[Rfam]
RNA sequence: UGGUGCAGUGAUGAUGCCUUAAGAUUGUGGUUUCUACUCACUGAGAGUAAAUGAAGACCUACAAUUCCUUGGCUGUGUCUGAGCACU
Numbered sequence: 001u002g003g004u005g006c007a008g009u010g011a012u013g014a015u016g017c018c019u020u021a022a023g024a025u026u027g028u029g030g031u032u033u034c035u036a037c038u039c040a041c042u043g044a045g046a047g048u049a050a051a052u053g054a055a056g057a058c059c060u061a062c063a064a065u066u067c068c069u070u071g072g073c074u075g076u077g078u079c080u081g082a083g084c085a086c087u
Stems, first nucleotide, its partner, number of pairs: 003086004